A member of the RNA family "MIR168 microRNA precursor family" from Phaseolus vulgaris, 125 nucleotides long. The family's consensus secondary structure was predicted with WAR.
[Rfam]
RNA sequence: CACUGUGCGGUCUCUAAUUCGCUUGGUGCAGGUCGGGAACCUGUUUUUGCGCGAAAUGGUGGAGUGGUUGCCGGCGGCGAAUUGGAUCCCGCCUUGCAUCAACUGAAUCGGAGGCCGCAGUGAAG
Dot-bracket structure: ............((..((((..((((((((((.(((((.((..........................................)).))))).))))))))))..))))..)).............
Numbered sequence: 001c002a003c004u005g006u007g008c009g010g011u012c013u014c015u016a017a018u019u020c021g022c023u024u025g026g027u028g029c030a031g032g033u034c035g036g037g038a039a040c041c042u043g044u045u046u047u048u049g050c051g052c053g054a055a056a057u058g059g060u061g062g063a064g065u066g067g068u069u070g071c072c073g074g075c076g077g078c079g080a081a082u083u084g085g086a087u088c089c090c091g092c093c094u095u096g097c098a099u100c101a102a103c104u105g106a107a108u109c110g111g112a113g114g115c116c117g118c119a120g121u122g123a124a125g
Stems, first nucleotide, its partner, number of pairs: 013112002017108004023102010034091005040085002

Source information: The source organism's lineage runs through Eukaryota, Viridiplantae, Streptophyta, Tracheophyta and Phaseolus.